[Rfam]
Rfam assigns this 100-nucleotide RNA from Cellvibrio japonicus to the family "TPP riboswitch aptamer (THI element)". About the family: Vitamin B(1) in its active form thiamin pyrophosphate (TPP) is an essential coenzyme that is synthesised by coupling of pyrimidine and thiazole moieties in bacteria. The previously detected thiamin-regulatory element, thi box was extended, resulting in a new, highly conserved RNA secondary structure, the THI element, which is widely distributed in eubacteria and also occurs in some archaea. Analysis of operon structures identified a large number of new candidate thiamin-regulated genes, mostly transporters, in various prokaryotic organisms.
RNA sequence: ACUUUCUUGUCGGGGUGCUCCGUAUCUGUUUGCGGGGCUGAGAAAUACCCGCCGACCUGAUCCGGUUAGUACCGGCGUAGGGAACGAGAGCUCUUCACUU
Number, nucleotide and partner (000 for none) at each position: 001a000002c000003u000004u000005u000006c088007u087008u086009g085010u084011c051012g050013g049014g048015g000016u045017g038018c037019u036020c035021c034022g033023u032024a031025u000026c000027u000028g000029u000030u000031u024032g023033c022034g021035g020036g019037g018038c017039u000040g000041a000042g000043a000044a000045a016046u000047a000048c014049c013050c012051g011052c000053c000054g000055a000056c081057c080058u079059g078060a000061u000062c075063c074064g073065g072066u000067u000068a000069g000070u000071a000072c065073c064074g063075g062076c000077g000078u059079a058080g057081g056082g000083a000084a010085c009086g008087a007088g006089a000090g000091c000092u000093c000094u000095u000096c000097a000098c000099u000100u000